[Rfam]
A member of the RNA family "mir-9229 microRNA precursor family" from Pipistrellus kuhlii, 76 nucleotides long.
Its family is annotated with miRNA-mediated post-transcriptional gene silencing and RISC complex in the Gene Ontology.
The base pairs follow the family's consensus structure, which was predicted with RNAalifold.
The source organism's lineage runs through Eukaryota, Craniata, Euteleostomi, Laurasiatheria and Pipistrellus.
RNA sequence: GAGACACAUUUAUGGGGCAGGACUUGUUCCAGUGGGGUUUUGAUGCUCACUGAGUCUGCCUCUUAAAUGUGUCCUU
Dot-bracket structure: (.(((((.((((.((((((.(((......(((((((((....)).))))))).))))))))).)))).))))).).